The family of this 157-nucleotide sequence from Roseovarius spongiae is "FMN riboswitch aptamer (RFN element)". A search with the family's covariance model found it, with a score of 109 bits.
RNA sequence: CUUCGUUCUCAGGGCGGGGCGGAAUUCCCCACCGGCGGUAACGGGCAUCGGCCCGAAGCCCGCGAGCGCCUCGGGAUUGCGCCGCAAUCCCCUGGGUCAAGCAGACCUGGUGCAAUUCCAGGGCCGACGGUCACAGUCCGGAUGAGAGAGAACGCCG
Numbered sequence: 001c002u003u004c005g006u007u008c009u010c011a012g013g014g015c016g017g018g019g020c021g022g023a024a025u026u027c028c029c030c031a032c033c034g035g036c037g038g039u040a041a042c043g044g045g046c047a048u049c050g051g052c053c054c055g056a057a058g059c060c061c062g063c064g065a066g067c068g069c070c071u072c073g074g075g076a077u078u079g080c081g082c083c084g085c086a087a088u089c090c091c092c093u094g095g096g097u098c099a100a101g102c103a104g105a106c107c108u109g110g111u112g113c114a115a116u117u118c119c120a121g122g123g124c125c126g127a128c129g130g131u132c133a134c135a136g137u138c139c140g141g142a143u144g145a146g147a148g149a150g151a152a153c154g155c156c157g
Stems, first nucleotide, its partner, number of pairs: 004154007017029003031137002033126002035063004058124002066102002106122005128140003